[Rfam]
RNA sequence: AAAGCAGGCCAGACUGUCGCUGCCCCGGCAACGGGGGGGAGGAAAGUCCGGGCUCCACAGGGCAGGAUGCCGGCUAACGGCCGGGCGUCGCGAGGCGACGGAAAGUGCAACAGAGAGCUGAACCGCCGAUGACCCGGAUUUCGCGGUGCGCAAGCACCGCAAAGUCCCAAACAAGCAGGAUGCUGCUUGCGGGCUGGCAAUCCGGCAACGGAUUGCCAGGGGAUCAGGCAAGGGUGAAAAGGUGGGCUGCGACAGCAGCCGUCCGCAAGGACCGGUAAGGGCGCACCGCCGGGGUGGCAACAUUCCCGGGCAGGGUAAACCCCAUCCGGAGCAAGACCAAGCAGCAGACGUUGAGGCGGCCCGCCGAGUCUGCGGGUAGGUUGCUGGAGCCAGUCCGCAAGGGCUGGCCUAGAGGAAUGACAGUCACCUGCCGCAAGGCAGGGUACAGAACCCGGCUUACCGGCCUGCUUUGCAA
Numbered sequence: 001a002a003a004g005c006a007g008g009c010c011a012g013a014c015u016g017u018c019g020c021u022g023c024c025c026c027g028g029c030a031a032c033g034g035g036g037g038g039g040a041g042g043a044a045a046g047u048c049c050g051g052g053c054u055c056c057a058c059a060g061g062g063c064a065g066g067a068u069g070c071c072g073g074c075u076a077a078c079g080g081c082c083g084g085g086c087g088u089c090g091c092g093a094g095g096c097g098a099c100g101g102a103a104a105g106u107g108c109a110a111c112a113g114a115g116a117g118c119u120g121a122a123c124c125g126c127c128g129a130u131g132a133c134c135c136g137g138a139u140u141u142c143g144c145g146g147u148g149c150g151c152a153a154g155c156a157c158c159g160c161a162a163a164g165u166c167c168c169a170a171a172c173a174a175g176c177a178g179g180a181u182g183c184u185g186c187u188u189g190c191g192g193g194c195u196g197g198c199a200a201u202c203c204g205g206c207a208a209c210g211g212a213u214u215g216c217c218a219g220g221g222g223a224u225c226a227g228g229c230a231a232g233g234g235u236g237a238a239a240a241g242g243u244g245g246g247c248u249g250c251g252a253c254a255g256c257a258g259c260c261g262u263c264c265g266c267a268a269g270g271a272c273c274g275g276u277a278a279g280g281g282c283g284c285a286c287c288g289c290c291g292g293g294g295u296g297g298c299a300a301c302a303u304u305c306c307c308g309g310g311c312a313g314g315g316u317a318a319a320c321c322c323c324a325u326c327c328g329g330a331g332c333a334a335g336a337c338c339a340a341g342c343a344g345c346a347g348a349c350g351u352u353g354a355g356g357c358g359g360c361c362c363g364c365c366g367a368g369u370c371u372g373c374g375g376g377u378a379g380g381u382u383g384c385u386g387g388a389g390c391c392a393g394u395c396c397g398c399a400a401g402g403g404c405u406g407g408c409c410u411a412g413a414g415g416a417a418u419g420a421c422a423g424u425c426a427c428c429u430g431c432c433g434c435a436a437g438g439c440a441g442g443g444u445a446c447a448g449a450a451c452c453c454g455g456c457u458u459a460c461c462g463g464c465c466u467g468c469u470u471u472g473c474a475a
Base pairs, nucleotide, nucleotide: 001471002470003469004468005467006466007465008464009463010462012425013424014423015422016421017420018419020039021038023036024035025034026033027032044458045457046456048455049454050453051452052451053331054330055329056328060362061361062360063359065327066326067325068324069323070084071083072082073081074080085099086097087096088095089094100322101321105320106319107316108315123233124232125229126228127227130226131225132224134222135221241287242286243285244284246282247281248280288311289309290308291307292306293305294303295302296301335382336381337380338379344373345372346371347370348369349368355365356364357363389408390407391406392405393404394403395402396401
RNA: Bacterial RNase P class A
Organism: Chitinilyticum piscinae